[Rfam]
RNA: ZMP/ZTP riboswitch aptamer (pfl RNA motif)
RNA sequence: GCUGGUCCGCGCGACUGGCGCUGAAAGAUGGAGACACCAUCGGGAAACGCGGACCGUGAGCGCUAUUUUCAUCGUGAUGUACGCUCAUGUCUGGCCGCGCGCCUGGGCAUUGCCU
Numbered sequence: 001g002c003u004g005g006u007c008c009g010c011g012c013g014a015c016u017g018g019c020g021c022u023g024a025a026a027g028a029u030g031g032a033g034a035c036a037c038c039a040u041c042g043g044g045a046a047a048c049g050c051g052g053a054c055c056g057u058g059a060g061c062g063c064u065a066u067u068u069u070c071a072u073c074g075u076g077a078u079g080u081a082c083g084c085u086c087a088u089g090u091c092u093g094g095c096c097g098c099g100c101g102c103c104u105g106g107g108c109a110u111u112g113c114c115u
Stems, first nucleotide, its partner, number of pairs: 003056009015044002017103005028040004094108003
Dot-bracket structure: ..(((((((((...(([[[[[......((((.....))))..))...))))))))).....................................(((..]]]]]..))).......